[Rfam]
RNA sequence: ACCACGACGACACCUCCGGGCAGGGGCGGGGGACCCAGUUUCGACGCCGUCUCCCACGGCUUGGGGUGAAGCCGUCCGCACCGCGGCCGGCCGGGCCACUCUUCGGGCCCGAACCCGACAGCUCACCUCGCAGGCGUGCGGAGAGGGACGUC
Numbered sequence: 001a002c003c004a005c006g007a008c009g010a011c012a013c014c015u016c017c018g019g020g021c022a023g024g025g026g027c028g029g030g031g032g033a034c035c036c037a038g039u040u041u042c043g044a045c046g047c048c049g050u051c052u053c054c055c056a057c058g059g060c061u062u063g064g065g066g067u068g069a070a071g072c073c074g075u076c077c078g079c080a081c082c083g084c085g086g087c088c089g090g091c092c093g094g095g096c097c098a099c100u101c102u103u104c105g106g107g108c109c110c111g112a113a114c115c116c117g118a119c120a121g122c123u124c125a126c127c128u129c130g131c132a133g134g135c136g137u138g139c140g141g142a143g144a145g146g147g148a149c150g151u152c
Stems, first nucleotide, its partner, number of pairs: 005136002008133001013024002026131006036063002064116003072090003093110004